Source information:
This 135-nucleotide RNA sequence from Limosilactobacillus fermentum belongs to the Rfam family "FMN riboswitch aptamer (RFN element)".
[Rfam]
RNA sequence: UAAUUUCUUCGGGGCAGGGUGAAAAUCCCGACCGACGGUGACAAGCAAUGCUUGAAGUCCGUGACCCGCAAAUUUGCGGCUGAACCAGUGCGAUUCUGGUACCGACAGUGAAAGUCUGGAUGGGAGAAGAAAAGG
Numbered sequence: 001u002a003a004u005u006u007c008u009u010c011g012g013g014g015c016a017g018g019g020u021g022a023a024a025a026u027c028c029c030g031a032c033c034g035a036c037g038g039u040g041a042c043a044a045g046c047a048a049u050g051c052u053u054g055a056a057g058u059c060c061g062u063g064a065c066c067c068g069c070a071a072a073u074u075u076g077c078g079g080c081u082g083a084a085c086c087a088g089u090g091c092g093a094u095u096c097u098g099g100u101a102c103c104g105a106c107a108g109u110g111a112a113a114g115u116c117u118g119g120a121u122g123g124g125a126g127a128a129g130a131a132a133a134g135g
Base pairs, nucleotide, nucleotide: 004132005131006130007129008128009127010126017029018028019027031115032114033104034103035062036061037060038059057102058101066079067078084100085099086098087097088096106118107117108116

Background
The base pairs follow the family's consensus structure, which is taken from published work. The match comes from Rfam's covariance-model search (112 bits). NCBI's taxonomy places the organism under Bacteria, Bacillota, Bacilli, Lactobacillales, Limosilactobacillus.